[Rfam]
RNA sequence: ACUGGCGAGGAUGACAUACACUUGCCCUCACUUAGACCAUCGUUCAUUGAUGAGAGUGCCUAGUGUUCUGAGCCCGU
Numbered sequence: 001a002c003u004g005g006c007g008a009g010g011a012u013g014a015c016a017u018a019c020a021c022u023u024g025c026c027c028u029c030a031c032u033u034a035g036a037c038c039a040u041c042g043u044u045c046a047u048u049g050a051u052g053a054g055a056g057u058g059c060c061u062a063g064u065g066u067u068c069u070g071a072g073c074c075c076g077u
Stems, first nucleotide, its partner, number of pairs: 001077002004074003
Small nucleolar RNA SNORD103/SNORD85: a 77-nucleotide RNA from Physeter macrocephalus.
By type it is a C/D-box small nucleolar RNA.
It scores 74 bits against the family's covariance model.
The source organism's lineage runs through Eukaryota, Bilateria, Chordata, Theria and Physeter.